[Rfam]
RNA sequence: AAGCAGGAUUUAGACUACAAUAUAGCUGUCUGUGCUGUGUUGUUGUUCCUCCUGCUGAAAAACAAAGCGUUUCUCUACUAUACCUGUCUGCUUUAUCCUGUAGCAGAGAUGCUUGGUCUCAUACAU
Dot-bracket structure: ..(((((.........((((((((((.......)))))))))).......)))))............................(((....(...........))))....................

This 126-nucleotide RNA sequence from Erinaceus europaeus belongs to the Rfam family "Small nucleolar RNA SNORA63".
For this family Rfam cites "Three small nucleolar RNAs that are involved in ribosomal RNA precursor processing" (Mishra and Eliceiri, Proc Natl Acad Sci U S A, 1997).
E3 belongs to the H/ACA class of snoRNAs and is involved in the processing of eukaryotic pre-rRNA and has regions of complementarity to 18S rRNA. E3 is encoded in introns in the gene for protein synthesis initiation factor 4AII.
Rfam classes the family as an H/ACA-box small nucleolar RNA.